[Rfam]
RNA sequence: UCGGUUGCAGGCGUAGCAUCAUCAAGAUUCACAAGUGAAAAUGGACGGCGAUGAUUGGAUCGCCCUUUGCCGAAAGUCCAUCUGAGAUUGAGAAUCUUGAUGAUGCUGCAUCGGCAAUAAA
Number, nucleotide and partner (000 for none) at each position: 001u000002c000003g000004g000005u000006u000007g000008c000009a000010g112011g111012c000013g109014u108015a107016g106017c105018a104019u103020c102021a101022u100023c099024a098025a097026g096027a095028u094029u093030c092031a000032c090033a089034a000035g000036u000037g000038a000039a000040a000041a000042u000043g000044g000045a000046c000047g000048g000049c000050g000051a000052u000053g000054a000055u000056u000057g000058g000059a000060u000061c000062g000063c000064c000065c000066u000067u000068u000069g000070c000071c000072g000073a000074a000075a000076g000077u000078c000079c000080a000081u000082c000083u000084g000085a000086g000087a000088u000089u033090g032091a000092g030093a029094a028095u027096c026097u025098u024099g023100a022101u021102g020103a019104u018105g017106c016107u015108g014109c013110a000111u011112c010113g000114g000115c000116a000117a000118u000119a000120a000121a000